[Rfam]
RNA sequence: CCCGUUCGGGUCCGUGGUUGCGCCGGACCGUUUCCGGGCUCGGAGACGGUCUGGCUAGCCGAUGCCAGCCGCAGGCGAAACGGCCCACGUAAGGCGACUCUUGGUCGUCCGAUCACGGUGCGGCUUAGAGGUAAGUCCUGCCCUCUCGGAGGUCCAGAUGUCCUCUGCAAGAGGAGAAGGGCAGUAGUGGCGAGUGAGCUGCGAACCCCUCAGCAGGCGGAUGUGGGGACGAAGACCAGGUCGGCCGGACGGG
Numbered sequence: 001c002c003c004g005u006u007c008g009g010g011u012c013c014g015u016g017g018u019u020g021c022g023c024c025g026g027a028c029c030g031u032u033u034c035c036g037g038g039c040u041c042g043g044a045g046a047c048g049g050u051c052u053g054g055c056u057a058g059c060c061g062a063u064g065c066c067a068g069c070c071g072c073a074g075g076c077g078a079a080a081c082g083g084c085c086c087a088c089g090u091a092a093g094g095c096g097a098c099u100c101u102u103g104g105u106c107g108u109c110c111g112a113u114c115a116c117g118g119u120g121c122g123g124c125u126u127a128g129a130g131g132u133a134a135g136u137c138c139u140g141c142c143c144u145c146u147c148g149g150a151g152g153u154c155c156a157g158a159u160g161u162c163c164u165c166u167g168c169a170a171g172a173g174g175a176g177a178a179g180g181g182c183a184g185u186a187g188u189g190g191c192g193a194g195u196g197a198g199c200u201g202c203g204a205a206c207c208c209c210u211c212a213g214c215a216g217g218c219g220g221a222u223g224u225g226g227g228g229a230c231g232a233a234g235a236c237c238a239g240g241u242c243g244g245c246c247g248g249a250c251g252g253g
Base pairs, nucleotide, nucleotide: 001253002252003251004250005249006248007247008246009245012244013243014242015238016237017236018235019234062224063223064222065075067125068124069123070122071121072120073119084118085117089113093109094108096105116231137217138216139215140214141213142174143173144172145171146170178210179209180208181207187202188201193200194199